The family of this 91-nucleotide sequence from Terrilactibacillus tamarindi is "c-di-GMP-I riboswitch aptamer". A search with the family's covariance model found it, with a score of 67 bits. From the family's description: GEMM was predicted in a large-scale screen for bacterial structured RNA regulatory elements.
RNA sequence: AUCAUAUCUUAGCAAACUUAUCGAAAGGUAAGGACGCAAAGCUACGAGUCUAAAAUCUAUGUGAGUAGAUCAAGAUCGUCGGGUUGCACCA
Numbered sequence: 001a002u003c004a005u006a007u008c009u010u011a012g013c014a015a016a017c018u019u020a021u022c023g024a025a026a027g028g029u030a031a032g033g034a035c036g037c038a039a040a041g042c043u044a045c046g047a048g049u050c051u052a053a054a055a056u057c058u059a060u061g062u063g064a065g066u067a068g069a070u071c072a073a074g075a076u077c078g079u080c081g082g083g084u085u086g087c088a089c090c091a
Stems, first nucleotide, its partner, number of pairs: 012037002017032006040085004045081003048076003055070006